[Rfam]
RNA sequence: UUUACUUAAUGAAGAAACUCCUUUAAGCCUUUUUGUGAGGGGAGUUUCUGAUGAAGAUGUAAA
Number, nucleotide and partner (000 for none) at each position: 001u063002u062003u061004a060005c059006u000007u000008a000009a000010u000011g000012a000013a000014g048015a047016a046017a045018c044019u043020c042021c041022u040023u039024u000025a000026a000027g000028c037029c000030u035031u000032u000033u000034u000035g030036u000037g028038a000039g023040g022041g021042g020043a019044g018045u017046u016047u015048c014049u000050g000051a000052u000053g000054a000055a000056g000057a000058u000059g005060u004061a003062a002063a001
Shown here is a 63-nucleotide sequence from Pleuronectes platessa, a member of the family "Selenocysteine insertion sequence 1". For this family Rfam cites "A novel RNA structural motif in the selenocysteine insertion element of eukaryotic selenoprotein mRNAs" (Walczak et al., RNA, 1996). The family's RNA type in Rfam is cis-regulatory element.